[Rfam]
RNA sequence: UAAAUAUUUAUCGAUAUAGGAUACUCAUAUUGAUAAAAUGAUUUAAACCGCUU
Numbered sequence: 001u002a003a004a005u006a007u008u009u010a011u012c013g014a015u016a017u018a019g020g021a022u023a024c025u026c027a028u029a030u031u032g033a034u035a036a037a038a039u040g041a042u043u044u045a046a047a048c049c050g051c052u053u
Base pairs, nucleotide, nucleotide: 011033012032013031014030015029016028017027
Rfam assigns this 53-nucleotide RNA from Solanum lycopersicum to the family "Plastid-atpF group II-D1 intron". A search with the family's covariance model found it, with a score of 57 bits. The organism belongs to Solanum subgen. Lycopersicon, within Eukaryota. Its family is annotated with Group II intron splicing in the Gene Ontology. Rfam describes the family as follows. Plastid atpF is a non-coding RNA (ncRNA) recognised in plastids. It has been reported in the intron group II-D1 region of ATP synthase (atpF) genes.